[Rfam]
RNA sequence: GACUCUGGCCGAGCGGUCGCCUUUUUCCUUUCUUCAGAAAGGUUGGGGGAGGAAAGUCCGGACACUAGGGGACAAUCGGACCAAGUAAUGCUUGGGCUUUUUUUUCCAGAAAUGGAAGGAAAGGGACGGAAAGUGCAACAGAAAGGAUACCGCCUACGUUAGUAGGUAAGGGUGAAAUGGUGGGGUAAGAGCCUACCGCUUUGUUUGUAAGAACAGAGGCAAGGUAAACCCUCCGAUGUGCAAUCUCAAGUAAACAACCGUUAUGAGCCUGUCCCGCCAGGUUGUGGGUAGAGAGCAUUAGAUAAAUGAUCGCCUAAAACAGAAUCCGGCUUAUGGGCCAGAGUCACCU
Numbered sequence: 001g002a003c004u005c006u007g008g009c010c011g012a013g014c015g016g017u018c019g020c021c022u023u024u025u026u027c028c029u030u031u032c033u034u035c036a037g038a039a040a041g042g043u044u045g046g047g048g049g050a051g052g053a054a055a056g057u058c059c060g061g062a063c064a065c066u067a068g069g070g071g072a073c074a075a076u077c078g079g080a081c082c083a084a085g086u087a088a089u090g091c092u093u094g095g096g097c098u099u100u101u102u103u104u105u106c107c108a109g110a111a112a113u114g115g116a117a118g119g120a121a122a123g124g125g126a127c128g129g130a131a132a133g134u135g136c137a138a139c140a141g142a143a144a145g146g147a148u149a150c151c152g153c154c155u156a157c158g159u160u161a162g163u164a165g166g167u168a169a170g171g172g173u174g175a176a177a178u179g180g181u182g183g184g185g186u187a188a189g190a191g192c193c194u195a196c197c198g199c200u201u202u203g204u205u206u207g208u209a210a211g212a213a214c215a216g217a218g219g220c221a222a223g224g225u226a227a228a229c230c231c232u233c234c235g236a237u238g239u240g241c242a243a244u245c246u247c248a249a250g251u252a253a254a255c256a257a258c259c260g261u262u263a264u265g266a267g268c269c270u271g272u273c274c275c276g277c278c279a280g281g282u283u284g285u286g287g288g289u290a291g292a293g294a295g296c297a298u299u300a301g302a303u304a305a306a307u308g309a310u311c312g313c314c315u316a317a318a319a320c321a322g323a324a325u326c327c328g329g330c331u332u333a334u335g336g337g338c339c340a341g342a343g344u345c346a347c348c349u
Base pairs, nucleotide, nucleotide: 001345002344003343004342005341006340007339008338009337010336011334013313014312015311016310017309018308020049021048022047023046024045027042028041029040030039031038054332055331056330058329059328060327061326062325063240064239065238071274076236077235078234079233080232081095082094083093084092085091096127097125098124099123100122101121102120103119104118105117128231129230133229134228135225136224150171151170152167153166154165155164156163157162179197180196181195182194183193184192198220199218200217201216202215203214204213205212206211244294245293246292247291254285255284256283257282258281259280265278267277268276

This 349-nucleotide sequence from Leptospira biflexa belongs to the Rfam family "Bacterial RNase P class A". Gene Ontology terms of the family: ribonuclease P activity, dimeric ribonuclease P complex and tRNA processing. The source organism's lineage runs through Bacteria, Spirochaetota, Leptospirales, Leptospira and Leptospira biflexa serovar Patoc. From the family's description: Ribonuclease P (RNase P) is a ubiquitous endoribonuclease, found in archaea, bacteria and eukarya as well as chloroplasts and mitochondria.